This 71-nucleotide RNA belongs to the Rfam family "DUF3800-X RNA". The base pairs follow the family's consensus structure, which is taken from published work.
[Rfam]
RNA sequence: UAGUGAGUAAGUCCUGUUGAACGAAUGACGCCUCAGGAAUGGAGGUCAGGACAAGUAAACAGGGUUCACUU
Numbered sequence: 001u002a003g004u005g006a007g008u009a010a011g012u013c014c015u016g017u018u019g020a021a022c023g024a025a026u027g028a029c030g031c032c033u034c035a036g037g038a039a040u041g042g043a044g045g046u047c048a049g050g051a052c053a054a055g056u057a058a059a060c061a062g063g064g065u066u067c068a069c070u071u
Base pairs, nucleotide, nucleotide: 002070003069004068005067006066012064013063014062015061016060017059018058031045032044033043034042
Rfam classes the family as a small RNA.